[Rfam]
RNA: tRNA
RNA sequence: GACCUGAUAGCUCAGCUGGGAGAGCGCUAUCUUGACAGGGUAGAGGUCGUGGGUUCGAUCCCCUCUCAGGUCA
Numbered sequence: 001g002a003c004c005u006g007a008u009a010g011c012u013c014a015g016c017u018g019g020g021a022g023a024g025c026g027c028u029a030u031c032u033u034g035a036c037a038g039g040g041u042a043g044a045g046g047u048c049g050u051g052g053g054u055u056c057g058a059u060c061c062c063c064u065c066u067c068a069g070g071u072c073a
Base pairs, nucleotide, nucleotide: 001072002071003070004069005068006067007066010025011024012023013022027043028042029041030040031039049065051063052062053061